[Rfam]
The record is a 167-nucleotide RNA sequence from Triticum aestivum, which matches "MIR2118 microRNA precursor family" in Rfam. The family has 7 seed sequences and 2,377 matches in Rfam 15.1. On this family, see Xue et al., Nucleic Acids Res 2009: "Characterization and expression profiles of miRNAs in rice seeds". The base pairs follow the family's consensus structure, which was predicted with RNAalifold. The source organism's lineage runs through Eukaryota, Tracheophyta, Poaceae, Triticodae and Triticum.
RNA sequence: GCCAGGAAGAGGAAGAGAUAGUCUCUAAGAGCAAUGGGAGUAGGAUCGUGGAGGAAAGUCUAGAGCUCGAUUUCUCCUCUAGUAUCAGAGGUAGAGAUUUUCUUUGUGCUUUCCCCAUGCCUCCUAUUCCUAUCGAUCUUAGGUACUCCUUCCUCUUUCUUCAGGAA
Numbered sequence: 001g002c003c004a005g006g007a008a009g010a011g012g013a014a015g016a017g018a019u020a021g022u023c024u025c026u027a028a029g030a031g032c033a034a035u036g037g038g039a040g041u042a043g044g045a046u047c048g049u050g051g052a053g054g055a056a057a058g059u060c061u062a063g064a065g066c067u068c069g070a071u072u073u074c075u076c077c078u079c080u081a082g083u084a085u086c087a088g089a090g091g092u093a094g095a096g097a098u099u100u101u102c103u104u105u106g107u108g109c110u111u112u113c114c115c116c117a118u119g120c121c122u123c124c125u126a127u128u129c130c131u132a133u134c135g136a137u138c139u140u141a142g143g144u145a146c147u148c149c150u151u152c153c154u155c156u157u158u159c160u161u162c163a164g165g166a167a
Stems, first nucleotide, its partner, number of pairs: 009158005015152003020147002024143007032135001035132011047119003051115001053114007